[Rfam]
Description:
S15-Flavobacteria ribosomal protein leader: a 68-nucleotide sequence. The family's consensus secondary structure is taken from published work. By type it is a cis-regulatory leader. Clan: Ribosomal Protein S15 Leader clan.
RNA sequence: UAUAUUUGCCCUUCAAUUUUGAGAAACAAGAUUGUUAGCAUAAAAAUUAUUUAAAAAAUAUUGGAAUG
Numbered sequence: 001u002a003u004a005u006u007u008g009c010c011c012u013u014c015a016a017u018u019u020u021g022a023g024a025a026a027c028a029a030g031a032u033u034g035u036u037a038g039c040a041u042a043a044a045a046a047u048u049a050u051u052u053a054a055a056a057a058a059u060a061u062u063g064g065a066a067u068g
Stems, first nucleotide, its partner, number of pairs: 014034006